[Rfam]
RNA sequence: UCUCUUUAAACUCCGGCCGAAUGAGCUUAUGUUACAUGUGUCUCUUCGGAGACUAUGGCGAUAAAUGCGCGUGUAAUAACCAGACCGGACCCGGGUGCGAAUCCCGGCGGCUCCACCAACUUCUCUUCCGCGGCGUUGCGCGGUGUGUGAGGGGCCGAAUUAGGAUCGACGGAUGGCUAAAGACGUAGCGUUCGCCCGAAUGGGCUUCGUUACCAGCCCGUUUACAGUAGUUGCCAACGACAACACUGCUGAAGAGUUCGCCCUCGCUGCGUAACGCAGCGCGAGCAACUCGCUUGUUAAGUCCUGUCCUCUAGCAAGGUCAGGCGGGGUUCGGGGGCGCCUGGCAACAGAAGCCCCCACU
Numbered sequence: 001u002c003u004c005u006u007u008a009a010a011c012u013c014c015g016g017c018c019g020a021a022u023g024a025g026c027u028u029a030u031g032u033u034a035c036a037u038g039u040g041u042c043u044c045u046u047c048g049g050a051g052a053c054u055a056u057g058g059c060g061a062u063a064a065a066u067g068c069g070c071g072u073g074u075a076a077u078a079a080c081c082a083g084a085c086c087g088g089a090c091c092c093g094g095g096u097g098c099g100a101a102u103c104c105c106g107g108c109g110g111c112u113c114c115a116c117c118a119a120c121u122u123c124u125c126u127u128c129c130g131c132g133g134c135g136u137u138g139c140g141c142g143g144u145g146u147g148u149g150a151g152g153g154g155c156c157g158a159a160u161u162a163g164g165a166u167c168g169a170c171g172g173a174u175g176g177c178u179a180a181a182g183a184c185g186u187a188g189c190g191u192u193c194g195c196c197c198g199a200a201u202g203g204g205c206u207u208c209g210u211u212a213c214c215a216g217c218c219c220g221u222u223u224a225c226a227g228u229a230g231u232u233g234c235c236a237a238c239g240a241c242a243a244c245a246c247u248g249c250u251g252a253a254g255a256g257u258u259c260g261c262c263c264u265c266g267c268u269g270c271g272u273a274a275c276g277c278a279g280c281g282c283g284a285g286c287a288a289c290u291c292g293c294u295u296g297u298u299a300a301g302u303c304c305u306g307u308c309c310u311c312u313a314g315c316a317a318g319g320u321c322a323g324g325c326g327g328g329g330u331u332c333g334g335g336g337g338c339g340c341c342u343g344g345c346a347a348c349a350g351a352a353g354c355c356c357c358c359a360c361u
Base pairs, nucleotide, nucleotide: 040053041052042051043050044049057196058195059194060193061192067189068188069186070185071184072183081175082174085172086171087170091107092106093105094104095103108157109156110155111154112153113152114151197209198208199207200206203219204218327342328341329340330339333358334357335356336355337354338353
The record is a 361-nucleotide sequence from Marinicauda pacifica, which matches "Alphaproteobacteria transfer-messenger RNA" in Rfam. The family's RNA type in Rfam is non-coding RNA gene. Rfam links the family to the GO term RNA catabolic process. The family is grouped with related families in Rfam's "tRNA clan".